The record is a 62-nucleotide RNA from Erwinia sp. 198, which matches "DnaX ribosomal frameshifting element" in Rfam.
The literature on the family includes a 1997 paper in J Bacteriol by Blinkova et al., "Conservation of the Escherichia coli dnaX programmed ribosomal frameshift signal in Salmonella typhimurium".
The family's RNA type in Rfam is frameshift element.
Rfam links the family to the GO term translational frameshifting.
Rfam's curators write: This family represents a ribosomal frameshifting element found in the mRNA of the dnaX gene in E. coli. The dnaX gene has two encoded products tau and gamma which are produced in a 1:1 ratio.
Pairs were carried over by alignment from the consensus structure, which is taken from published work.
Lineage of the source: Bacteria > Pseudomonadati > Enterobacterales > Erwiniaceae > Erwinia.
RNA sequence: AGCAGGGAGCGACCAAACUAAAAAAGAGUGAGCCGGCAGCGCCCAAUGCGCGGCCGGCAGGC
Number, nucleotide and partner (000 for none) at each position: 001a000002g000003c000004a000005g000006g000007g000008a000009g000010c000011g000012a000013c000014c000015a000016a000017a000018c000019u000020a000021a000022a000023a000024a000025a000026g000027a000028g000029u000030g000031a000032g058033c057034c056035g055036g054037c053038a000039g051040c050041g049042c048043c000044c000045a000046a000047u000048g042049c041050g040051c039052g000053g037054c036055c035056g034057g033058c032059a000060g000061g000062c000